[Rfam]
RNA sequence: GUGCAAUCCUGAGUUAGAAGAUAUGAGAGUAUAGGCAAACGGAGUAAUCCGUAGUCUAUGCGAACCAAACCCCUGAAAUUAAUUUAAUUUAAGGAAACGUUAUUUAGGUCAUGAUACCUUGGGAUUCGCUAGUUCCAUGCUCUAUCGCUAAAGUUUAAACAUCUUGAAAAGGAAGUGAUUUUAGCCUAACAAGCCUUUAUAACAAGGUUGAAGCAAACAUAAC
Numbered sequence: 001g002u003g004c005a006a007u008c009c010u011g012a013g014u015u016a017g018a019a020g021a022u023a024u025g026a027g028a029g030u031a032u033a034g035g036c037a038a039a040c041g042g043a044g045u046a047a048u049c050c051g052u053a054g055u056c057u058a059u060g061c062g063a064a065c066c067a068a069a070c071c072c073c074u075g076a077a078a079u080u081a082a083u084u085u086a087a088u089u090u091a092a093g094g095a096a097a098c099g100u101u102a103u104u105u106a107g108g109u110c111a112u113g114a115u116a117c118c119u120u121g122g123g124a125u126u127c128g129c130u131a132g133u134u135c136c137a138u139g140c141u142c143u144a145u146c147g148c149u150a151a152a153g154u155u156u157a158a159a160c161a162u163c164u165u166g167a168a169a170a171g172g173a174a175g176u177g178a179u180u181u182u183a184g185c186c187u188a189a190c191a192a193g194c195c196u197u198u199a200u201a202a203c204a205a206g207g208u209u210g211a212a213g214c215a216a217a218c219a220u221a222a223c
Stems, first nucleotide, its partner, number of pairs: 001065002003061003008029001010026001014021002068209004073093002076090005099203005106196004114145002118139001120137006126219001128214003147185009159176002162173004